[Rfam]
RNA sequence: GAUCGACGCGCGUCAACCGGACGUGGCGGUACAGGGAACAGGUCGGGUUUUUCCGGUUUCCCCACCUGGCCAACGAAACGGCAGCCGAGCCCUUGCCCCGCCCGCUUU
Numbered sequence: 001g002a003u004c005g006a007c008g009c010g011c012g013u014c015a016a017c018c019g020g021a022c023g024u025g026g027c028g029g030u031a032c033a034g035g036g037a038a039c040a041g042g043u044c045g046g047g048u049u050u051u052u053c054c055g056g057u058u059u060c061c062c063c064a065c066c067u068g069g070c071c072a073a074c075g076a077a078a079c080g081g082c083a084g085c086c087g088a089g090c091c092c093u094u095g096c097c098c099c100g101c102c103c104g105c106u107u108u
Base pairs, nucleotide, nucleotide: 006107008105009104011023012022013021014020025102026101027100028098029097033093034092035091036090039068040067041066042065043064045062069082070081071080
A member of the RNA family "Rhizobiales sRNA Atu_At1" from Devosia sp. Root413D1, 108 nucleotides long. Taxonomically the source falls in Devosia (Bacteria, Pseudomonadati, Hyphomicrobiales, Devosiaceae). A reference for the family is Wilms et al. (2012), "Deep sequencing uncovers numerous small RNAs on all four replicons of the plant pathogen Agrobacterium tumefaciens", RNA Biol. Pairs were carried over by alignment from the consensus structure, which was predicted with CMfinder. A search with the family's covariance model found it, with a score of 92 bits.